Shown here is a 67-nucleotide sequence from Caenorhabditis bovis, a member of the family "mir-239 microRNA precursor family".
The literature on the family includes a 2009 paper in Genome Biol by Kato et al., "Dynamic expression of small non-coding RNAs, including novel microRNAs and piRNAs/21U-RNAs, during Caenorhabditis elegans development".
Gene Ontology terms of the family: RISC complex and miRNA-mediated post-transcriptional gene silencing.
Lineage of the source: Eukaryota > Rhabditida > Rhabditomorpha > Rhabditoidea > Caenorhabditis.
RNA sequence: CGAGCUUUGUACUAGACAAAUGCACUGGAACACUGAAUAUCAGCGCAUUUGAUAGUGCAAAACUCGC
Numbered sequence: 001c002g003a004g005c006u007u008u009g010u011a012c013u014a015g016a017c018a019a020a021u022g023c024a025c026u027g028g029a030a031c032a033c034u035g036a037a038u039a040u041c042a043g044c045g046c047a048u049u050u051g052a053u054a055g056u057g058c059a060a061a062a063c064u065c066g067c
Base pairs, nucleotide, nucleotide: 003064004063006061007060008059009058010057011056012055015053017051018050019049020048021047022046023045025043026042027041029038